[Rfam]
RNA sequence: GCUGGGGCCAGCUGGGACCAGUCAUGGGCAAAAGAAAUAUGUUUUGUCCACUGUUGCAGUCUUCCUAAAGCAAAGUGGAGGUUUCUGUCUGGUUUAAGAGAGACAGCUAAACCAGAUCGUUCCCCUCCACACACG
Numbered sequence: 001g002c003u004g005g006g007g008c009c010a011g012c013u014g015g016g017a018c019c020a021g022u023c024a025u026g027g028g029c030a031a032a033a034g035a036a037a038u039a040u041g042u043u044u045u046g047u048c049c050a051c052u053g054u055u056g057c058a059g060u061c062u063u064c065c066u067a068a069a070g071c072a073a074a075g076u077g078g079a080g081g082u083u084u085c086u087g088u089c090u091g092g093u094u095u096a097a098g099a100g101a102g103a104c105a106g107c108u109a110a111a112c113c114a115g116a117u118c119g120u121u122c123c124c125c126u127c128c129a130c131a132c133a134c135g
Stems, first nucleotide, its partner, number of pairs: 004065003009059001011057002025050005034043002077128005085119001087117003091113006
Shown here is a 135-nucleotide RNA sequence from Colius striatus, a member of the family "Small Cajal body specific RNA 3". The literature on the family includes a 2002 paper in EMBO J by Darzacq et al., "Cajal body-specific small nuclear RNAs: a novel class of 2'-O-methylation and pseudouridylation guide RNAs". Taxonomically the source falls in Colius (Eukaryota, Tetrapoda, Sauria, Aves). Its Rfam clan is "SCARNA3 clan". The family has 23 seed sequences and 642 matches in Rfam 15.1. scaRNAs are a specific class of small nuclear RNAs which localise to the Cajal bodies and guide the modification of RNA polymerase II transcribed spliceosomal RNAs U1, U2, U4, U5 and U12. Rfam classes the family as a small Cajal body RNA.